[Rfam]
RNA: ASpks TB sRNA
RNA sequence: CUUGACCGAGCCCAGCCACAGCGGCUGCUCGGCGCUCCGCUCCCGGCCGUAGGUGGCCAGCAGCGCCUGUGCCUC
Numbered sequence: 001c002u003u004g005a006c007c008g009a010g011c012c013c014a015g016c017c018a019c020a021g022c023g024g025c026u027g028c029u030c031g032g033c034g035c036u037c038c039g040c041u042c043c044c045g046g047c048c049g050u051a052g053g054u055g056g057c058c059a060g061c062a063g064c065g066c067c068u069g070u071g072c073c074u075c
Base pairs, nucleotide, nucleotide: 014026015025016024017023033071034070035069038065039064043060045058047056048055049054